[Rfam]
RNA sequence: GCGUGCAGUGAUGGUUAACCAUCUUUCGGGUCUGAUUAUGAUGAAACCGAUUUUUGCUGAGCACGC
Number, nucleotide and partner (000 for none) at each position: 001g066002c065003g064004u063005g062006c061007a000008g000009u000010g000011a000012u000013g000014g000015u000016u000017a000018a000019c000020c000021a000022u000023c000024u000025u000026u000027c000028g000029g000030g000031u000032c000033u000034g000035a000036u000037u000038a000039u000040g000041a000042u000043g000044a000045a000046a000047c000048c000049g000050a000051u000052u000053u000054u000055u000056g000057c000058u000059g000060a000061g006062c005063a004064c003065g002066c001
This 66-nucleotide sequence from Toxocara canis belongs to the Rfam family "Small nucleolar RNA SNORD2". A reference for the family is Zhou et al. (2004), "Identification of a novel box C/D snoRNA from mouse nucleolar cDNA library", Gene. The family's consensus secondary structure was predicted with WAR.